[Rfam]
The family of this 115-nucleotide RNA is "Actinobacteria sRNA Ms_IGR-7". It scores 49 bits against the family's covariance model. Rfam classes the family as a small RNA.

RNA sequence: GUGCCGUGCAAUUUUGGUCUGAAAUCAUACUUGUGAUCAAAUCACACGUAUGAUUUCAGCCCAAAUUGCACUCCACUUAGUUCAAUUACCAUUAUAAAUCUAUCAGAAGGUUUAG
Numbered sequence: 001g002u003g004c005c006g007u008g009c010a011a012u013u014u015u016g017g018u019c020u021g022a023a024a025u026c027a028u029a030c031u032u033g034u035g036a037u038c039a040a041a042u043c044a045c046a047c048g049u050a051u052g053a054u055u056u057c058a059g060c061c062c063a064a065a066u067u068g069c070a071c072u073c074c075a076c077u078u079a080g081u082u083c084a085a086u087u088a089c090c091a092u093u094a095u096a097a098a099u100c101u102a103u104c105a106g107a108a109g110g111u112u113u114a115g
Stems, first nucleotide, its partner, number of pairs: 002075002006071008015063003019059005025053004030048001032046003096113006